This 178-nucleotide RNA from Lachnoclostridium sp. An76 belongs to the Rfam family "6S / SsrS RNA". From the family's description: E. coli 6S RNA was the first non coding RNA to be sequenced, but its function was unknown until recently. The base pairs follow the family's consensus structure, which is taken from published work.

[Rfam]
RNA sequence: GUCAACCUGGGAUGUGCGACAACCCUGUAAUUUUGAACCUACAUUUGUUUAAACGGGAUUCCUAUAUUUCUGUAAUAUGUCAGGCCUCCAUAUGCAGUGGACGACAGAAAAGCAGAUGCGGUUGCCCACCUGGCUGCGGCUAGGACUCAAAAUACAGGACCGGCAUUUUGGGUUACUG
Numbered sequence: 001g002u003c004a005a006c007c008u009g010g011g012a013u014g015u016g017c018g019a020c021a022a023c024c025c026u027g028u029a030a031u032u033u034u035g036a037a038c039c040u041a042c043a044u045u046u047g048u049u050u051a052a053a054c055g056g057g058a059u060u061c062c063u064a065u066a067u068u069u070c071u072g073u074a075a076u077a078u079g080u081c082a083g084g085c086c087u088c089c090a091u092a093u094g095c096a097g098u099g100g101a102c103g104a105c106a107g108a109a110a111a112g113c114a115g116a117u118g119c120g121g122u123u124g125c126c127c128a129c130c131u132g133g134c135u136g137c138g139g140c141u142a143g144g145a146c147u148c149a150a151a152a153u154a155c156a157g158g159a160c161c162g163g164c165a166u167u168u169u170g171g172g173u174u175a176c177u178g
Base pairs, nucleotide, nucleotide: 004174005173006172007171008170009169010168011167012166013165014164015163017162018161032152033151034149035148036147038144039143055127056126057125061121062120066117069116070115071114072113073112079105080104085100086099088097

Taxonomically the source falls in Lachnoclostridium (Bacteria, Bacillati, Clostridia, Lachnospirales). Rfam classes the family as a non-coding RNA gene.